RNA sequence: CUAAUGAUACUUCUGCCUGGCCUGCGUCACUGCAUAGGGGGCAGUCCGCUCGGAUGAGGGGGAGUUUCGCACAAGCAACGAAACUAUGA
Numbered sequence: 001c002u003a004a005u006g007a008u009a010c011u012u013c014u015g016c017c018u019g020g021c022c023u024g025c026g027u028c029a030c031u032g033c034a035u036a037g038g039g040g041g042c043a044g045u046c047c048g049c050u051c052g053g054a055u056g057a058g059g060g061g062g063a064g065u066u067u068c069g070c071a072c073a074a075g076c077a078a079c080g081a082a083a084c085u086a087u088g089a
Stems, first nucleotide, its partner, number of pairs: 012086001013044006045062003049058003063085007